[Rfam]
RNA: Manganese Mn2+ riboswitch aptamer (yybP-ykoY)
RNA sequence: CCGCCGCAGUAAUGGGGAGUAGCCUACUUCCGCCCCAGGAAGCGCACGCGUCAACAUACUCGGUGAUAUCACCGUGGCGCGUGCAGCCAUAGCGCUCGGCGAGACCAUGAACACAACAGCCGGGUAGUCGUCGGGCCUGUCUGUUGUGUCCUGGUUUCCGACACACGCUAUGGU
Numbered sequence: 001c002c003g004c005c006g007c008a009g010u011a012a013u014g015g016g017g018a019g020u021a022g023c024c025u026a027c028u029u030c031c032g033c034c035c036c037a038g039g040a041a042g043c044g045c046a047c048g049c050g051u052c053a054a055c056a057u058a059c060u061c062g063g064u065g066a067u068a069u070c071a072c073c074g075u076g077g078c079g080c081g082u083g084c085a086g087c088c089a090u091a092g093c094g095c096u097c098g099g100c101g102a103g104a105c106c107a108u109g110a111a112c113a114c115a116a117c118a119g120c121c122g123g124g125u126a127g128u129c130g131u132c133g134g135g136c137c138u139g140u141c142u143g144u145u146g147u148g149u150c151c152u153g154g155u156u157u158c159c160g161a162c163a164c165a166c167g168c169u170a171u172g173g174u
Base pairs, nucleotide, nucleotide: 027042028041029040044084045083046082047081048080049079050078051077052076053075061074062073063072064071065070086174087173088172089171090170091169